[Rfam]
RNA sequence: GGGCUACUGCUCUUCUCGUGACAGGGUCCGAUUUCCAGUGGCCUAUACCGACUCCGAGGGAGCCGGCUCUGGUCGGGUCCUGGCCCGAUCACCUGGUGCCCACCUGUUCACACAGGUCCUCGGGAAACGACAACCCGCACGGCCGCUGCGGUUGCCCG
Dot-bracket structure: .(((.(((((.(..(.(((.............((((((.((((..............(((.(((((....(((((((......)))))))..))))).))).............)))))).)))).............))))..)..))))).)))..
A member of the RNA family "6S / SsrS RNA" from Rubellimicrobium sp. CFH 75288, 158 nucleotides long. It is annotated as a non-coding RNA gene. A search with the family's covariance model found it, with a score of 51 bits. Lineage of the source: Bacteria > Pseudomonadati > Alphaproteobacteria > Roseobacteraceae > Rubellimicrobium. The family's consensus secondary structure is taken from published work.